[Rfam]
RNA sequence: AAAAAAGCAAUACCACCCUCUUGAUAGAACAAGAGGGUGGUAUUGCUUUUUU
Dot-bracket structure: ((((((((((((..((.((((((......)))))).))..))))))))))))

Plastid-psbA-4 3UTR RNA: a 52-nucleotide RNA sequence. Rfam's curators put it in the seed alignment.